[Rfam]
RNA sequence: GUCCGUUCAUCUCUACGUAUUAACAAGUAGAGACGCAUGACACCCAAGCAUGGAACGGGGCUUGGA
Number, nucleotide and partner (000 for none) at each position: 001g000002u000003c000004c057005g056006u055007u054008c053009a000010u033011c032012u031013c030014u029015a028016c027017g000018u000019a000020u000021u000022a000023a000024c000025a000026a000027g016028u015029a014030g013031a012032g011033a010034c000035g000036c000037a000038u000039g000040a000041c000042a000043c000044c065045c064046a063047a062048g061049c060050a000051u000052g000053g008054a007055a006056c005057g004058g000059g000060g049061c048062u047063u046064g045065g044066a000
Shown here is a 66-nucleotide RNA, a member of the family "Glutamine-II riboswitch aptamer". For this family Rfam cites "Structure and ligand binding of the glutamine-II riboswitch" (Huang et al., Nucleic Acids Res, 2019). It is one of the family's seed sequences.